RNA sequence: CUUAAACCACAGUAGGCCACAGUAGGAGCAUUCUCGCUAUGGCCCUUGUCAGAUUCUAAUCUGUGAAUCCUAUU
Numbered sequence: 001c002u003u004a005a006a007c008c009a010c011a012g013u014a015g016g017c018c019a020c021a022g023u024a025g026g027a028g029c030a031u032u033c034u035c036g037c038u039a040u041g042g043c044c045c046u047u048g049u050c051a052g053a054u055u056c057u058a059a060u061c062u063g064u065g066a067a068u069c070c071u072a073u074u
Base pairs, nucleotide, nucleotide: 015044016043017042018041021074022073023072024071025070026069027068028040030038050063051062052061053060054059
Dot-bracket structure: ..............[[[[..((((((((.(.......).)]]]].....(((((....)))))....)))))))